[Rfam]
RNA sequence: CGGGAUCUAUCCCGUAAAGGAAUGUGGCUCAAAAGAGCUGAACCUGGAG
Numbered sequence: 001c002g003g004g005a006u007c008u009a010u011c012c013c014g015u016a017a018a019g020g021a022a023u024g025u026g027g028c029u030c031a032a033a034a035g036a037g038c039u040g041a042a043c044c045u046g047g048a049g
Stems, first nucleotide, its partner, number of pairs: 001014005018045003026039005

Background
The family of this 49-nucleotide sequence is "eL15-Euryarchaeota ribosomal protein leader". The sequence is in the family's curated seed alignment.